[Rfam]
RNA sequence: UUGCCCACUUUAAGGCUACAUUCUUUUAAGUGGCCAACACAGGGGGGUAUAUUAAAGAGCUCUCUAAAACUCUAAGCAAAAUGGAAGUUUUUGCUCUGAAUCCUGUCGUGAGCAAUACAA
Numbered sequence: 001u002u003g004c005c006c007a008c009u010u011u012a013a014g015g016c017u018a019c020a021u022u023c024u025u026u027u028a029a030g031u032g033g034c035c036a037a038c039a040c041a042g043g044g045g046g047g048u049a050u051a052u053u054a055a056a057g058a059g060c061u062c063u064c065u066a067a068a069a070c071u072c073u074a075a076g077c078a079a080a081a082u083g084g085a086a087g088u089u090u091u092u093g094c095u096c097u098g099a100a101u102c103c104u105g106u107c108g109u110g111a112g113c114a115a116u117a118c119a120a
Stems, first nucleotide, its partner, number of pairs: 002049005008043003014038001015035001017033001019030001056116001060112003064108001071099002075095003079091003082087001
A member of the RNA family "Small nucleolar RNA SNORA26" from Xenopus tropicalis, 120 nucleotides long. The family's RNA type in Rfam is H/ACA-box small nucleolar RNA. Pairs were carried over by alignment from the consensus structure, which was predicted with RNAalifold. On this family, see Huttenhofer et al., EMBO J 2001: "RNomics: an experimental approach that identifies 201 candidates for novel, small, non-messenger RNAs in mouse". The family is grouped with related families in Rfam's "SNORA27 clan". From the family's description: The snoRNA HBI-6 belong to the H/ACA family of snoRNAs, guiding the pseudouridylation of position U4522 if the 28S rRNA. HBI-6 is the human orthologue of mouse MBI-6 snoRNA.